RNA sequence: CUCGCCGCCGCCUCCGGUUCGCUUGGUGCAGGUCGGGAACGCCGAGAUCAGCCAGCGGACGAGCCAGCCGCUUCCCGCCUUGCACCAACUGAAUCGGAGCCGGAAA
Numbered sequence: 001c002u003c004g005c006c007g008c009c010g011c012c013u014c015c016g017g018u019u020c021g022c023u024u025g026g027u028g029c030a031g032g033u034c035g036g037g038a039a040c041g042c043c044g045a046g047a048u049c050a051g052c053c054a055g056c057g058g059a060c061g062a063g064c065c066a067g068c069c070g071c072u073u074c075c076c077g078c079c080u081u082g083c084a085c086c087a088a089c090u091g092a093a094u095c096g097g098a099g100c101c102g103g104a105a106a
Stems, first nucleotide, its partner, number of pairs: 013098002017094004023088010034077005
RNA: MIR168 microRNA precursor family